[Rfam]
RNA sequence: UUCAUGGUUGUCAAUGAUGUAUUCCAAUUGAAAAUGAAUCUUAGUGAUCUAGCUCAAAUAUUCGUCACUACCACUGAGACAACUAUGAA
Numbered sequence: 001u002u003c004a005u006g007g008u009u010g011u012c013a014a015u016g017a018u019g020u021a022u023u024c025c026a027a028u029u030g031a032a033a034a035u036g037a038a039u040c041u042u043a044g045u046g047a048u049c050u051a052g053c054u055c056a057a058a059u060a061u062u063c064g065u066c067a068c069u070a071c072c073a074c075u076g077a078g079a080c081a082a083c084u085a086u087g088a089a
Base pairs, nucleotide, nucleotide: 001089002088003087004086005085006084007083008082009081010080011079012078

Rfam assigns this 89-nucleotide RNA from Urocitellus parryii to the family "Small nucleolar RNA SNORD70".
Rfam's curators write: snoRNA HBII-234 belongs to the C/D family of snoRNAs. It is the human orthologue of the mouse MBII-234 and is predicted to guide 2'O-ribose methylation of the small 18S rRNA on position A512. It is hosted, together with HBII-95, by the core C/D box snoRNA protein encoding gene NOP5/NOP58.
The match comes from Rfam's covariance-model search (97 bits).
Rfam links the family to the GO terms nucleolus and RNA processing.